Notes: Shown here is a 220-nucleotide RNA sequence from Polypterus senegalus, a member of the family "Small nucleolar RNA SNORD17". The organism belongs to Polypterus, within Eukaryota. The snoRNA HBI-43 belongs to the C/D family of snoRNAs, guiding 2'O-ribose methylation at position U3797 of the 28S rRNA. Pseudouridylation in position U3797 is predicted to be guided by the H/ACA snoRNA ACA48. It scores 79 bits against the family's covariance model. Gene Ontology terms of the family: nucleolus and RNA processing.
RNA sequence: AUGAAAUGAUGAUGAUGUUUAUCCAUUCUCCGAGUAUUGCCAGUUGCCAGUCCUUGCAGCACUUGAUCUGUUCUAGAUCUGAGUGUGACAGCCCCAUUUACUGUAAAGGUGGCCCAGUGUUCUACUGAGUGCCUUGUAGUAUUUGGUCGCUGUUGUAGGAUUGGUCAAUCUGGCAUGGGCAGUGUCUGCCUAACAAAGAUGAGGAAUCAACUCUGAUCAU
Number, nucleotide and partner (000 for none) at each position: 001a000002u000003g000004a000005a000006a000007u000008g000009a000010u219011g218012a217013u216014g000015a000016u000017g212018u000019u210020u209021a000022u000023c000024c204025a000026u203027u202028c201029u000030c198031c000032g000033a000034g194035u193036a000037u000038u000039g174040c173041c172042a171043g169044u168045u167046g166047c164048c163049a162050g161051u160052c159053c158054u157055u155056g154057c000058a000059g086060c085061a084062c083063u082064u081065g079066a078067u077068c076069u075070g000071u000072u000073c000074u000075a069076g068077a067078u066079c065080u000081g064082a063083g062084u061085g060086u059087g000088a153089c152090a151091g150092c149093c000094c000095c000096a000097u000098u000099u000100a140101c139102u138103g000104u000105a000106a135107a134108g133109g132110u131111g130112g000113c129114c000115c127116a126117g125118u124119g123120u000121u000122c000123u119124a118125c117126u116127g115128a000129g113130u111131g110132c109133c108134u107135u106136g000137u000138a102139g101140u100141a000142u000143u000144u000145g000146g000147u000148c000149g092150c091151u090152g089153u088154u056155g055156u000157a054158g053159g052160a051161u050162u049163g048164g047165u000166c046167a045168a044169u043170c000171u042172g041173g040174c039175a000176u192177g191178g190179g189180c188181a187182g186183u000184g000185u000186c182187u181188g180189c179190c178191u177192a176193a035194c034195a000196a000197a000198g030199a000200u000201g028202a027203g026204g024205a000206a000207u000208c000209a020210a019211c000212u017213c000214u000215g000216a013217u012218c011219a010220u000